[Rfam]
RNA sequence: GUGCAUCUUUGACAGCCCGGGCUCUCUGUUGUGAGAGAACCUGUGUUUUAUUGUUUCAGAUGCAACAGUAAACGUCCCUGCGCUUUCUGCGCGCCUGUUUUCAAUGGUGCCUCAGAUUGAAGAGGGGAAAACAAAC
Numbered sequence: 001g002u003g004c005a006u007c008u009u010u011g012a013c014a015g016c017c018c019g020g021g022c023u024c025u026c027u028g029u030u031g032u033g034a035g036a037g038a039a040c041c042u043g044u045g046u047u048u049u050a051u052u053g054u055u056u057c058a059g060a061u062g063c064a065a066c067a068g069u070a071a072a073c074g075u076c077c078c079u080g081c082g083c084u085u086u087c088u089g090c091g092c093g094c095c096u097g098u099u100u101u102c103a104a105u106g107g108u109g110c111c112u113c114a115g116a117u118u119g120a121a122g123a124g125g126g127g128a129a130a131a132c133a134a135a136c
Stems, first nucleotide, its partner, number of pairs: 002064007011051001014049002018045001021040001023038005075128005083119001086116004091110005
The record is a 136-nucleotide RNA sequence from Poecilia formosa, which matches "Small nucleolar RNA SNORA31" in Rfam. On this family, see Huttenhofer et al., EMBO J 2001: "RNomics: an experimental approach that identifies 201 candidates for novel, small, non-messenger RNAs in mouse". A search with the family's covariance model found it, with a score of 45 bits. Rfam links the family to the GO terms RNA processing and nucleolus. It is annotated as an H/ACA-box small nucleolar RNA. Rfam's curators write: ACA31 (SNORA31) belongs to the H/ACA class of snoRNAs which are thought to guide the sites of modification of uridines to pseudouridines. ACA31 is predicted to guide the pseudouridylation of U3713 in 28S rRNA and U218 in 18S rRNA. This family includes the mouse homologue snoMBI-161.